Rfam assigns this 72-nucleotide sequence from Rodent arterivirus to the family "Polymerase ribosomal frameshift site".
RNA sequence: UUUAAACUCCUAACCGCCAGCGGCUUGACCCGCUGUGGUCGCGGCGGUUUAGUUACUACAUCAACAGCGGUA
Numbered sequence: 001u002u003u004a005a006a007c008u009c010c011u012a013a014c015c016g017c018c019a020g021c022g023g024c025u026u027g028a029c030c031c032g033c034u035g036u037g038g039u040c041g042c043g044g045c046g047g048u049u050u051a052g053u054u055a056c057u058a059c060a061u062c063a064a065c066a067g068c069g070g071u072a
Base pairs, nucleotide, nucleotide: 013048014047015046016045017044018043020042021041022040023039024038025037030070031069032068033067034066035065036064
Dot-bracket structure: ............((((((.((((((....[[[[[[[))))))))))))...............]]]]]]]..
Notes: The literature on the family includes a 1999 paper in J Gen Virol by Allende et al., "North American and European porcine reproductive and respiratory syndrome viruses differ in non-structural protein coding regions". Rfam links the family to the GO term viral translational frameshifting. The source organism's lineage runs through Viruses, Riboviria, Orthornavirae, Nidovirales and Arteriviridae.